[Rfam]
RNA sequence: GCAUGGGGUAGAGGCGCAAAGCGAAUGAGUACACUUUGGGAGUUACUGGCAGCGUGGAACAAAGUAGAAAGGUCAAUUUGCCGAAGCGUGGGGAGAGGUCAGUUCUAACCAUAGCUGGGUCGUUGUUAAAUAAGCAACGAACUGUCACUGCAAGGUUGCAGUGGAGGACUAUUCUCGGU
Number, nucleotide and partner (000 for none) at each position: 001g000002c000003a000004u000005g000006g174007g173008g172009u171010a170011g169012a000013g000014g000015c000016g081017c080018a079019a078020a077021g000022c000023g074024a073025a000026u000027g000028a000029g000030u000031a000032c000033a065034c064035u063036u062037u061038g060039g000040g000041a000042g000043u000044u000045a000046c000047u000048g000049g000050c000051a000052g000053c000054g000055u000056g000057g000058a000059a000060c038061a037062a036063a035064g034065u033066a000067g000068a000069a000070a000071g000072g000073u024074c023075a000076a000077u020078u019079u018080g017081c016082c000083g000084a000085a116086g115087c114088g112089u111090g110091g109092g000093g000094a106095g105096a000097g000098g000099u000100c000101a000102g000103u000104u000105c095106u094107a000108a000109c091110c090111a089112u088113a000114g087115c086116u085117g143118g142119g000120u140121c139122g138123u137124u136125g135126u134127u133128a000129a000130a000131u000132a000133a127134g126135c125136a124137a123138c122139g121140a120141a000142c118143u117144g000145u164146c163147a162148c161149u160150g159151c158152a000153a000154g000155g000156u000157u000158g151159c150160a149161g148162u147163g146164g145165a000166g000167g000168a000169c011170u010171a009172u008173u007174c006175u000176c000177g000178g000179u000
Rfam assigns this 179-nucleotide RNA sequence from Halalkalibacter nanhaiisediminis to the family "Lysine riboswitch aptamer". Its family is annotated with lysine biosynthetic process in the Gene Ontology. The organism belongs to Halalkalibacter, within Bacteria. It scores 100 bits against the family's covariance model.